[Rfam]
RNA sequence: AAUAAGUGCAGCAGUAAAAAUCCAUGUCCAACGUUUGACCGUCCGUCUUAUUUGAAAAAUUUAUGAAUUUUUUUAAAAAAAUAGUCACACAAAAAAGUACUAUUCAUAUUUUAUCAUCUAAUAAAAAAUAAAAUAAUAAUCAUAAAAAAUUUUCACAUAAGACGAACGGUUAAACGUUGGAGAUGAAUAGUGUAAAACUGCACUUAUU
Numbered sequence: 001a002a003u004a005a006g007u008g009c010a011g012c013a014g015u016a017a018a019a020a021u022c023c024a025u026g027u028c029c030a031a032c033g034u035u036u037g038a039c040c041g042u043c044c045g046u047c048u049u050a051u052u053u054g055a056a057a058a059a060u061u062u063a064u065g066a067a068u069u070u071u072u073u074u075a076a077a078a079a080a081a082u083a084g085u086c087a088c089a090c091a092a093a094a095a096a097g098u099a100c101u102a103u104u105c106a107u108a109u110u111u112u113a114u115c116a117u118c119u120a121a122u123a124a125a126a127a128a129u130a131a132a133a134u135a136a137u138a139a140u141c142a143u144a145a146a147a148a149a150u151u152u153u154c155a156c157a158u159a160a161g162a163c164g165a166a167c168g169g170u171u172a173a174a175c176g177u178u179g180g181a182g183a184u185g186a187a188u189a190g191u192g193u194a195a196a197a198c199u200g201c202a203c204u205u206a207u208u
Stems, first nucleotide, its partner, number of pairs: 027181006034174009044164008
MIR812 microRNA precursor family: a 208-nucleotide RNA from Oryza barthii. The match comes from Rfam's covariance-model search (115 bits).